[Rfam]
RNA sequence: GUGGAUAGUUUUCAUACAAUCCACUUGAGAAGUAUGACGAAAGACUUUCAGCGACAAGAAUUUUGUGGGUAUCUUGCGCUUCGUCCGUUUACUUACUACAAACAAUGAGUACUAUGUACGCCAGUCAUUUUCUCACUUUCGAGAGA
Numbered sequence: 001g002u003g004g005a006u007a008g009u010u011u012u013c014a015u016a017c018a019a020u021c022c023a024c025u026u027g028a029g030a031a032g033u034a035u036g037a038c039g040a041a042a043g044a045c046u047u048u049c050a051g052c053g054a055c056a057a058g059a060a061u062u063u064u065g066u067g068g069g070u071a072u073c074u075u076g077c078g079c080u081u082c083g084u085c086c087g088u089u090u091a092c093u094u095a096c097u098a099c100a101a102a103c104a105a106u107g108a109g110u111a112c113u114a115u116g117u118a119c120g121c122c123a124g125u126c127a128u129u130u131u132c133u134c135a136c137u138u139u140c141g142a143g144a145g146a
Stems, first nucleotide, its partner, number of pairs: 038078001041075004048069002051066004083125002087121002090118003094114002097111003101106001129146006
Dot-bracket structure: .....................................(..((((...((.((((........)))).))..))))..)....((..((.(((.((.(((.(....)..))).)).))).))..))...((((((......))))))
The record is a 146-nucleotide sequence from Pseudomonas sp. StFLB209, which matches "Pseudomonas sRNA P14" in Rfam.
Pairs were carried over by alignment from the consensus structure, which was predicted with WAR.
Rfam classes the family as a small RNA.
For this family Rfam cites "Identification of 17 Pseudomonas aeruginosa sRNAs and prediction of sRNA-encoding genes in 10 diverse pathogens using the bioinformatic tool sRNAPredict2" (Livny et al., Nucleic Acids Res, 2006).